This 117-nucleotide sequence from Maricaulis virginensis belongs to the Rfam family "ALIL pseudoknot". The match comes from Rfam's covariance-model search (116 bits). The family's RNA type in Rfam is cis-regulatory element. Pairs were carried over by alignment from the consensus structure, which is taken from published work. Taxonomically the source falls in Maricaulis (Bacteria, Pseudomonadota, Alphaproteobacteria, Maricaulales).

[Rfam]
RNA sequence: AGCUUAUUUUGCCCAGGCGGAGCUCGACCGCCGGUACAAGCCAUGACCGAUUUCAUCGAUGAGCAUCGCGAGGCGCAUGGGGUCGAGCCGAUCUGCCGGGUCUUGCCGAUCGCCCCG
Numbered sequence: 001a002g003c004u005u006a007u008u009u010u011g012c013c014c015a016g017g018c019g020g021a022g023c024u025c026g027a028c029c030g031c032c033g034g035u036a037c038a039a040g041c042c043a044u045g046a047c048c049g050a051u052u053u054c055a056u057c058g059a060u061g062a063g064c065a066u067c068g069c070g071a072g073g074c075g076c077a078u079g080g081g082g083u084c085g086a087g088c089c090g091a092u093c094u095g096c097c098g099g100g101u102c103u104u105g106c107c108g109a110u111c112g113c114c115c116c117g
Stems, first nucleotide, its partner, number of pairs: 016032005078117005089112002092109002095106002098103001